[Rfam]
RNA sequence: CGACCCGGUACGCCACGACGCCAAACGCUUUGAAAGAACCUCGGGAAAGAACCCAACCCCACCCCACCCGAACCCCGUCCGAACGCCGAUCACUCGCGCGGGUGACAAAUGGCAACUGAGCUGGAUUUGGGGUCGGUUGUCGGGCAUAUGCUCCCGGCAACAACCCCAGACACGCGUCGACCCCGACCGGGACCUGCAAUCCCAGCCGGGGCCUGACCACCGAGGAAGAAAUGACCUUCCCG
Numbered sequence: 001c002g003a004c005c006c007g008g009u010a011c012g013c014c015a016c017g018a019c020g021c022c023a024a025a026c027g028c029u030u031u032g033a034a035a036g037a038a039c040c041u042c043g044g045g046a047a048a049g050a051a052c053c054c055a056a057c058c059c060c061a062c063c064c065c066a067c068c069c070g071a072a073c074c075c076c077g078u079c080c081g082a083a084c085g086c087c088g089a090u091c092a093c094u095c096g097c098g099c100g101g102g103u104g105a106c107a108a109a110u111g112g113c114a115a116c117u118g119a120g121c122u123g124g125a126u127u128u129g130g131g132g133u134c135g136g137u138u139g140u141c142g143g144g145c146a147u148a149u150g151c152u153c154c155c156g157g158c159a160a161c162a163a164c165c166c167c168a169g170a171c172a173c174g175c176g177u178c179g180a181c182c183c184c185g186a187c188c189g190g191g192a193c194c195u196g197c198a199a200u201c202c203c204a205g206c207c208g209g210g211g212c213c214u215g216a217c218c219a220c221c222g223a224g225g226a227a228g229a230a231a232u233g234a235c236c237u238u239c240c241c242g
Stems, first nucleotide, its partner, number of pairs: 007221003017079004090105006123153002179213001181211003185207001187205001189203004224240005
Dot-bracket structure: ......(((.......((((.......................................................))))..........((((((....)))))).................((...........................)).........................(.(((.(.(.((((.......)))).).).))).).....)))..(((((.......)))))..
The record is a 242-nucleotide sequence, which matches "Streptomyces sRNA 4677" in Rfam. About the family: Located in the intergenic region between anti-sigma factor SCO4677 gene and a putative regulatory protein gene SCO4676. scr4677 expression requires the SCO4677 activity and scr4677 sRNA itself seem to affect the levels of the SCO4676-associated transcripts. The match comes from Rfam's covariance-model search (102 bits). By type it is a small RNA.